[Rfam]
RNA sequence: AAAAUAAACCAGCAAACUUAUUGAAAGAUAAGGACGCAAAACCAUGGGUCUACGUACAUUGUAUAGGAUUGCCAGGUUGCAAUU
Numbered sequence: 001a002a003a004a005u006a007a008a009c010c011a012g013c014a015a016a017c018u019u020a021u022u023g024a025a026a027g028a029u030a031a032g033g034a035c036g037c038a039a040a041a042c043c044a045u046g047g048g049u050c051u052a053c054g055u056a057c058a059u060u061g062u063a064u065a066g067g068a069u070u071g072c073c074a075g076g077u078u079g080c081a082a083u084u
Stems, first nucleotide, its partner, number of pairs: 012037002017032006040078004045074003048069003055063003
A member of the RNA family "c-di-GMP-I riboswitch aptamer" from Dendrosporobacter quercicolus, 84 nucleotides long. A search with the family's covariance model found it, with a score of 70 bits. The organism belongs to Dendrosporobacter, within Bacteria.